The family of this 69-nucleotide RNA from Novipirellula herctigrandis is "int-alpA RNA". Rfam describes the family as follows. Acidobacteria (1 example), Planctomycetes (1 example), Proteobacteria. By type it is a small RNA. Taxonomically the source falls in Novipirellula (Bacteria, Pseudomonadati, Pirellulales, Pirellulaceae). A search with the family's covariance model found it, with a score of 49 bits.
RNA sequence: GCCACGGCUAGGCUUAGCGGCUGAAAACCGGCACCCAUACCGGCCGUCGUGGCGUUUCUUUUUUUAUGG
Numbered sequence: 001g002c003c004a005c006g007g008c009u010a011g012g013c014u015u016a017g018c019g020g021c022u023g024a025a026a027a028c029c030g031g032c033a034c035c036c037a038u039a040c041c042g043g044c045c046g047u048c049g050u051g052g053c054g055u056u057u058c059u060u061u062u063u064u065u066a067u068g069g
Base pairs, nucleotide, nucleotide: 001053002052003051004050005049006048007047008046011022012021013020014019028043029042030041031040034069035068039064